[Rfam]
Annotation:
Shown here is an 83-nucleotide RNA from Clostridium manihotivorum, a member of the family "pan motif". The family's RNA type in Rfam is cis-regulatory element. The source organism's lineage runs through Bacteria, Bacillota, Clostridia, Clostridiaceae and Clostridium. The match comes from Rfam's covariance-model search (44 bits).

RNA sequence: UGGGUGGCAUCGAAAGAGCUAUACCAGACUUUUAAGAAAAAUUUUUAAUAUUGUGCACAUAUCCAUUGGAAUGAGACAUAUUU
Numbered sequence: 001u002g003g004g005u006g007g008c009a010u011c012g013a014a015a016g017a018g019c020u021a022u023a024c025c026a027g028a029c030u031u032u033u034a035a036g037a038a039a040a041a042u043u044u045u046u047a048a049u050a051u052u053g054u055g056c057a058c059a060u061a062u063c064c065a066u067u068g069g070a071a072u073g074a075g076a077c078a079u080a081u082u083u
Base pairs, nucleotide, nucleotide: 001026002025003024004022005021006020007019008018010017011016053079054078055077056075058073059072060071062070063069064068